The record is a 75-nucleotide RNA sequence from Clunio marinus, which matches "mir-33 microRNA precursor family" in Rfam.
Lineage of the source: Eukaryota > Panarthropoda > Altocrustacea > Pterygota > Clunio.
Gene Ontology terms of the family: RISC complex and gene silencing by miRNA.
It scores 64 bits against the family's covariance model.
[Rfam]
RNA sequence: UGUGGGUGCAUUGUAGUUGCAUUGCAUGUGAUGAGCUUGAAAAUAUUCUGCAAUACUUCUGCAGUGCAACCCUCA
Dot-bracket structure: ((.(.(((((((((((..(.((((((......................)))))).)..))))))))))..)).))